[Rfam]
RNA: raiA RNA
RNA sequence: UUAAGUUAGGUUUGUGAUUGAAAGUCGAUGCCAGCCGCAGGCAAAGCGAUCCACGUAAGUUAAAUAAAAUAUUUAAUGAGCAUGGUGCGGUUUAGAAGUAAGACCUGCCGUAUAAUAAUAGCGAGAGGGUUAGUAGUGAGAGGAAAAUUCUGGGUAGCAAAGGCUCCAGCAGGCGAGUGUGGGGUCAAAGAUCAGGUCAACUAGCUUAA
Numbered sequence: 001u002u003a004a005g006u007u008a009g010g011u012u013u014g015u016g017a018u019u020g021a022a023a024g025u026c027g028a029u030g031c032c033a034g035c036c037g038c039a040g041g042c043a044a045a046g047c048g049a050u051c052c053a054c055g056u057a058a059g060u061u062a063a064a065u066a067a068a069a070u071a072u073u074u075a076a077u078g079a080g081c082a083u084g085g086u087g088c089g090g091u092u093u094a095g096a097a098g099u100a101a102g103a104c105c106u107g108c109c110g111u112a113u114a115a116u117a118a119u120a121g122c123g124a125g126a127g128g129g130u131u132a133g134u135a136g137u138g139a140g141a142g143g144a145a146a147a148u149u150c151u152g153g154g155u156a157g158c159a160a161a162g163g164c165u166c167c168a169g170c171a172g173g174c175g176a177g178u179g180u181g182g183g184g185u186c187a188a189a190g191a192u193c194a195g196g197u198c199a200a201c202u203a204g205c206u207u208a209a
Base pairs, nucleotide, nucleotide: 001209002208003207004206005205006204007203008202009201012200013199014198015194016193017192018191019190028180029179030178031041033092034091035090036089037088038087039086050085051084058077060075062073063072083187104173105172106171107170108169109123110122111121127166128165129164130163136158137157142151143150144149
Dot-bracket structure: (((((((((..((((((((........((([.(((((((.]........((......(.(.((........)).).).....[)))))))))...........((((((((.........)))...((((.....((....(((....))).....))....))))..)))))....)))......]..)))))...))))))))))))